[Rfam]
RNA sequence: UGGCACGUUGGCAAUGGAUUCUGCCAGGCAUCGAGCCGAACCGCUUCCCCACGAAGCUGAUGACUCCUGCUCAUGA
Numbered sequence: 001u002g003g004c005a006c007g008u009u010g011g012c013a014a015u016g017g018a019u020u021c022u023g024c025c026a027g028g029c030a031u032c033g034a035g036c037c038g039a040a041c042c043g044c045u046u047c048c049c050c051a052c053g054a055a056g057c058u059g060a061u062g063a064c065u066c067c068u069g070c071u072c073a074u075g076a
Stems, first nucleotide, its partner, number of pairs: 010025004016067003020063002043057004
RNA: Fluoride riboswitch aptamer (crcB RNA motif)
Organism: Sinorhizobium alkalisoli